Acido-Lenti-1 RNA: a 46-nucleotide RNA from Cesiribacter andamanensis. A search with the family's covariance model found it, with a score of 39 bits. It is annotated as a small RNA.
RNA sequence: UCUUGCCCUUACAGGCAAGGCUUUUUUAUAUCGCCCCGUUGGGGCU
Numbered sequence: 001u002c003u004u005g006c007c008c009u010u011a012c013a014g015g016c017a018a019g020g021c022u023u024u025u026u027u028a029u030a031u032c033g034c035c036c037c038g039u040u041g042g043g044g045c046u
Stems, first nucleotide, its partner, number of pairs: 001020007033045005